[Rfam]
RNA: Glycine riboswitch aptamer
Organism: Schinkia azotoformans
RNA sequence: AAGACUGUAGUGGGAGAGAACGUAAUUAUACGUCACCGAAGGGGCAAAUCUUAAAUGAAAGAUGAAUCUCUCAGGUAAAAAGACCACUGUAGGACG
Numbered sequence: 001a002a003g004a005c006u007g008u009a010g011u012g013g014g015a016g017a018g019a020a021c022g023u024a025a026u027u028a029u030a031c032g033u034c035a036c037c038g039a040a041g042g043g044g045c046a047a048a049u050c051u052u053a054a055a056u057g058a059a060a061g062a063u064g065a066a067u068c069u070c071u072c073a074g075g076u077a078a079a080a081a082g083a084c085c086a087c088u089g090u091a092g093g094a095c096g
Stems, first nucleotide, its partner, number of pairs: 006091008020033004035076003038072002042070003048063004